The family of this 77-nucleotide RNA sequence from Laodelphax striatellus is "mir-971 microRNA precursor family".
The base pairs follow the family's consensus structure, which was predicted with RNAalifold.
Gene Ontology terms of the family: RISC complex and miRNA-mediated post-transcriptional gene silencing.
Taxonomically the source falls in Laodelphax (Eukaryota, Metazoa, Panarthropoda, Arthropoda).
RNA sequence: AGUGUGGCUCACUCUAAGCUCGAACACCAAGCCCUGUCCUUCGACGUUUGGUGUUCUACCUUACAGUGAGCUACUCU
Numbered sequence: 001a002g003u004g005u006g007g008c009u010c011a012c013u014c015u016a017a018g019c020u021c022g023a024a025c026a027c028c029a030a031g032c033c034c035u036g037u038c039c040u041u042c043g044a045c046g047u048u049u050g051g052u053g054u055u056c057u058a059c060c061u062u063a064c065a066g067u068g069a070g071c072u073a074c075u076c077u
Base pairs, nucleotide, nucleotide: 006072007071008070009069010068011067012066013065015063016062017061025053026052027051028050029049030048031047032046